[Rfam]
RNA sequence: CGACCUCGUGCGGGAGAGUCCGUCGGAGCGCGACUUCGACGGCGCCGAAGGAGCAAAUCCUCCCCGGAAUCUCUCAGGCCCCUGUACCGCACGGGCGAA
Numbered sequence: 001c002g003a004c005c006u007c008g009u010g011c012g013g014g015a016g017a018g019u020c021c022g023u024c025g026g027a028g029c030g031c032g033a034c035u036u037c038g039a040c041g042g043c044g045c046c047g048a049a050g051g052a053g054c055a056a057a058u059c060c061u062c063c064c065c066g067g068a069a070u071c072u073c074u075c076a077g078g079c080c081c082c083u084g085u086a087c088c089g090c091a092c093g094g095g096c097g098a099a
Base pairs, nucleotide, nucleotide: 006094007093008092009091010090011089012088013087020042021041022040023039024038025037026036027035028034044079045078046077047075048074051073052072053071058066

This 99-nucleotide sequence from Streptomyces alkaliphilus belongs to the Rfam family "Glycine riboswitch aptamer". From the family's description: This family represents the bacterial glycine riboswitch. Rfam links the family to the GO term glycine biosynthetic process.